[Rfam]
RNA sequence: ACCGCAUAAAUUCGCAUCUUUCGUAUAUCCUGAGCAAUAGGGUUCAGGGUCUCUACCGGAAACCGUAAAUUUCUAGCUACGAAAAAUAGGCCUCAGGCG
Dot-bracket structure: ..................(((((((...(((((((......))))))).........(((((.......)))))...)))))))...............

Purine riboswitch aptamer: a 99-nucleotide RNA sequence from Paenibacillaceae bacterium GAS479. About the family: Riboswitches are metabolite binding domains within certain messenger RNAs that serve as precision sensors for their corresponding targets.